[Rfam]
RNA sequence: CUGAAAAAAUAUCAAUAUUUUUCAUUAAAAGUUGUUCAUCUUAGGCAUGUUGGUCUUGGGUAAGUUCAA
Numbered sequence: 001c002u003g004a005a006a007a008a009a010u011a012u013c014a015a016u017a018u019u020u021u022u023c024a025u026u027a028a029a030a031g032u033u034g035u036u037c038a039u040c041u042u043a044g045g046c047a048u049g050u051u052g053g054u055c056u057u058g059g060g061u062a063a064g065u066u067c068a069a
Stems, first nucleotide, its partner, number of pairs: 002068003008026003
A member of the RNA family "Small nucleolar RNA SNORD56" from Cetraspora pellucida, 69 nucleotides long. On this family, see Galardi et al., Mol Cell Biol 2002: "Purified box C/D snoRNPs are able to reproduce site-specific 2'-O-methylation of target RNA in vitro". The match comes from Rfam's covariance-model search (38 bits). The source organism's lineage runs through Eukaryota, Opisthokonta, Glomeromycotina, Glomeromycetes and Cetraspora.